Record summary:
The record is a 38-nucleotide sequence from Clostridium putrefaciens, which matches "Selenocysteine insertion sequence 4" in Rfam. Its family is annotated with selenocysteine incorporation in the Gene Ontology.

RNA sequence: GGAACUUGUACGCGUUGCGGUGCAACCAUGGUUAAAGA
Numbered sequence: 001g002g003a004a005c006u007u008g009u010a011c012g013c014g015u016u017g018c019g020g021u022g023c024a025a026c027c028a029u030g031g032u033u034a035a036a037g038a
Base pairs, nucleotide, nucleotide: 005031006030014026015025016024017023018022
For this family Rfam cites "Molecular analysis of the grd operon coding for genes of the glycine reductase and of the thioredoxin system from Clostridium sticklandii" (Graentzdoerffer et al., Arch Microbiol, 2001).